c-di-AMP riboswitch aptamer (ydaO/yuaA leader): a 151-nucleotide RNA from [Actinomadura] parvosata.

RNA sequence: GCGCGGGACACGCCAAAUCCCCGCGAGGGGAGCCGGGGACCCACCGGCGGCGACCCCCAUCGCCGUCACCCGGGGUGAAUCCGAGUCGUUCGGUAGGGCUGCUCCGGCCCGAACCCGUCAGCUAACCCGGUAGGCGUCGAGGAAGGGAGCU
Numbered sequence: 001g002c003g004c005g006g007g008a009c010a011c012g013c014c015a016a017a018u019c020c021c022c023g024c025g026a027g028g029g030g031a032g033c034c035g036g037g038g039a040c041c042c043a044c045c046g047g048c049g050g051c052g053a054c055c056c057c058c059a060u061c062g063c064c065g066u067c068a069c070c071c072g073g074g075g076u077g078a079a080u081c082c083g084a085g086u087c088g089u090u091c092g093g094u095a096g097g098g099c100u101g102c103u104c105c106g107g108c109c110c111g112a113a114c115c116c117g118u119c120a121g122c123u124a125a126c127c128c129g130g131u132a133g134g135c136g137u138c139g140a141g142g143a144a145g146g147g148a149g150c151u
Stems, first nucleotide, its partner, number of pairs: 011136004018031005032131006042072001073116003081093004096110004